RNA sequence: CGGCAUUCAACAUGAAUUAAACCCGUAAAUUAUCAAUUAUGAGUUGGGCGUUUUAACCAUUUAGCCAUGGAUGC
Numbered sequence: 001c002g003g004c005a006u007u008c009a010a011c012a013u014g015a016a017u018u019a020a021a022c023c024c025g026u027a028a029a030u031u032a033u034c035a036a037u038u039a040u041g042a043g044u045u046g047g048g049c050g051u052u053u054u055a056a057c058c059a060u061u062u063a064g065c066c067a068u069g070g071a072u073g074c
Base pairs, nucleotide, nucleotide: 003074004073005072006071007070008069010026011025014022039068040067041066043065044064045063046062047061048060050058
Description
The family of this 74-nucleotide RNA from Zizania palustris is "Plastid-ycf2 5UTR RNA". For this family Rfam cites "Retrograde signaling in plants: A critical review focusing on the GUN pathway and beyond" (Richter et al., Plant Commun, 2023). Taxonomically the source falls in Zizania (Eukaryota, Mesangiospermae, Poaceae, Zizaniinae). The family's consensus secondary structure was predicted with LocARNA. By type it is a cis-regulatory element.